[Rfam]
RNA sequence: GAGGUAGCUUGCUUAUGCUUACGGGUAAACAUACGAGAAAGCUUGUCUUUCUUUCCACAUUAUAAACCCGUGGGAAAGUCCGAGGAAAGCCGUAAUACUCUUGCCGGGUAACCUGCGAAAGCGGGUGUAGGGUACCAGAAAACCAUGACGAAGUUUCAUCUACGGCCGUUGAUAGUUUUUCUUUGGGAAGACUUAGGCUUUGGUGUUGUUGAGUCAUUGAAAAUCCCUGCUGGUGUUUUGAUUUGAAGUGCAAUGCAUAAGGCCAAUUUUAUAAACAAUUUGGUAACUCAAUUCGGAUUACACUAGCUUCCUC
Dot-bracket structure: ((((..(((..(((((((..(((((..........((((((.....))))))..............)))))........[[[[[....((((...(((((.....)))))((((((....))))))((((((..............(((...............................................................))).........))))))))))....................)))))))(((((.(.........).))))).......]]]]]........)))..))))

Shown here is a 313-nucleotide RNA sequence from Circinella minor, a member of the family "Nuclear RNase P". NCBI's taxonomy places the organism under Eukaryota, Mucoromycotina, Mucoromycetes, Lichtheimiaceae, Circinella. Rfam links the family to the GO terms tRNA processing, ribonuclease P complex and ribonuclease P activity. By type it is a ribozyme.